The record is a 93-nucleotide RNA from Tissierella praeacuta, which matches "pan motif" in Rfam.

RNA sequence: UAGCCAAUAUCAAAUUAGAAUUGGACUGGCUAAAAGUUAAAAUUUAAUAUUUUAUCGACUGGUAUCCAAAAUUAAAAGGAACUAGAGCGGGAG
Numbered sequence: 001u002a003g004c005c006a007a008u009a010u011c012a013a014a015u016u017a018g019a020a021u022u023g024g025a026c027u028g029g030c031u032a033a034a035a036g037u038u039a040a041a042a043u044u045u046a047a048u049a050u051u052u053u054a055u056c057g058a059c060u061g062g063u064a065u066c067c068a069a070a071a072u073u074a075a076a077a078g079g080a081a082c083u084a085g086a087g088c089g090g091g092a093g
Stems, first nucleotide, its partner, number of pairs: 001028003004024005010019002056089002059085005065080003
It scores 43 bits against the family's covariance model. The family's RNA type in Rfam is cis-regulatory element. The family's consensus secondary structure is taken from published work.